[Rfam]
RNA sequence: AGCAAAAAUGAUGAGCUCUUUUGAUCCGAAUUCAUUUAUGUGGAAUCACAUUUUGUUAAUGGUCUUCGAAGUUCUCUGAUCGCU
Numbered sequence: 001a002g003c004a005a006a007a008a009u010g011a012u013g014a015g016c017u018c019u020u021u022u023g024a025u026c027c028g029a030a031u032u033c034a035u036u037u038a039u040g041u042g043g044a045a046u047c048a049c050a051u052u053u054u055g056u057u058a059a060u061g062g063u064c065u066u067c068g069a070a071g072u073u074c075u076c077u078g079a080u081c082g083c084u
Stems, first nucleotide, its partner, number of pairs: 001084003005080001
Record summary
The family of this 84-nucleotide sequence from Populus tomentosa is "Small nucleolar RNA R160". The pairing is the family consensus, mapped onto this sequence. The family's RNA type in Rfam is C/D-box small nucleolar RNA. About the family: snoR160 is a C/D box small nucleolar RNA, which acts as a methylation guide for 25S ribosomal RNA in plants. snoR160 has been alternatively named snoZ270 in rice.